[Rfam]
RNA sequence: GGCAGCACAAGCUCACACUAGGGGUCAGAGUGAGGCUGAUGCCACAUUUGCCCCUGGGAAGGUCUGAGAGAAGGGACAUGAGAAGGUCUAGCAGGUCAACCUCUGAGAAGAGGGGCAGAACACCAGACAUCCUUUUGGAUCCUUGUUGUUUACUGUGUCAAGGACACCUAUUUAUUAUGUGAGUAAUGUGUAGGUGGAGGUGCGUGAACAUCAUUGGUUGGAAAGGCACUGUGUCCAGCUUAAUUUAGUGUGAUGUGUGAGGUGACAGUUGUCAUAACUCAAUUCAGACUAUUCUGUAUUGCC
Numbered sequence: 001g002g003c004a005g006c007a008c009a010a011g012c013u014c015a016c017a018c019u020a021g022g023g024g025u026c027a028g029a030g031u032g033a034g035g036c037u038g039a040u041g042c043c044a045c046a047u048u049u050g051c052c053c054c055u056g057g058g059a060a061g062g063u064c065u066g067a068g069a070g071a072a073g074g075g076a077c078a079u080g081a082g083a084a085g086g087u088c089u090a091g092c093a094g095g096u097c098a099a100c101c102u103c104u105g106a107g108a109a110g111a112g113g114g115g116c117a118g119a120a121c122a123c124c125a126g127a128c129a130u131c132c133u134u135u136u137g138g139a140u141c142c143u144u145g146u147u148g149u150u151u152a153c154u155g156u157g158u159c160a161a162g163g164a165c166a167c168c169u170a171u172u173u174a175u176u177a178u179g180u181g182a183g184u185a186a187u188g189u190g191u192a193g194g195u196g197g198a199g200g201u202g203c204g205u206g207a208a209c210a211u212c213a214u215u216g217g218u219u220g221g222a223a224a225g226g227c228a229c230u231g232u233g234u235c236c237a238g239c240u241u242a243a244u245u246u247a248g249u250g251u252g253a254u255g256u257g258u259g260a261g262g263u264g265a266c267a268g269u270u271g272u273c274a275u276a277a278c279u280c281a282a283u284u285c286a287g288a289c290u291a292u293u294c295u296g297u298a299u300u301g302c303c
Stems, first nucleotide, its partner, number of pairs: 001303004007297003012261007020055005032045001034043003064287005074236004085097004100113005115232004121226001135217003262275005
Nuclear RNase P: a 303-nucleotide RNA from Penaeus vannamei. From the family's description: Ribonuclease P (RNase P) is a ubiquitous endoribonuclease, found in archaea, bacteria and eukarya as well as chloroplasts and mitochondria. Its best characterised activity is the generation of mature 5'-ends of tRNAs by cleaving the 5'-leader elements of precursor-tRNAs. Cellular RNase Ps are ribonucleoproteins. RNA from bacterial RNase Ps retains its catalytic activity in the absence of the protein subunit, i.e. it is a ribozyme. Isolated eukaryotic and archaeal RNase P RNA has not been shown to retain its catalytic function, but is still essential for the catalytic activity of the holoenzyme. Although the archaeal and eukaryotic holoenzyme s have a much greater protein content than the bacterial ones, the RNA cores from all the three lineages are homologous -- helices corresponding to P1, P2, P3, P4, and P10/11 are common to all cellular RNase P RNAs. Yet, there is considerable sequence variation, particularly among the eukaryotic RNAs. A reference for the family is Frank and Pace (1998), "Ribonuclease P: unity and diversity in a tRNA processing ribozyme", Annu Rev Biochem.